[Rfam]
RNA: TPP riboswitch aptamer (THI element)
RNA sequence: UAAAUCUUGUCGGGGUGCCUAAUUGGGCUGAGAUUAAACCCGCUGAACCUGAUCCAGUUAACACUGGCGUAGGAAUCGAGAUGUCCCAAGUU
Numbered sequence: 001u002a003a004a005u006c007u008u009g010u011c012g013g014g015g016u017g018c019c020u021a022a023u024u025g026g027g028c029u030g031a032g033a034u035u036a037a038a039c040c041c042g043c044u045g046a047a048c049c050u051g052a053u054c055c056a057g058u059u060a061a062c063a064c065u066g067g068c069g070u071a072g073g074a075a076u077c078g079a080g081a082u083g084u085c086c087c088a089a090g091u092u
Stems, first nucleotide, its partner, number of pairs: 006080004011042004016036001017028004048073004054067004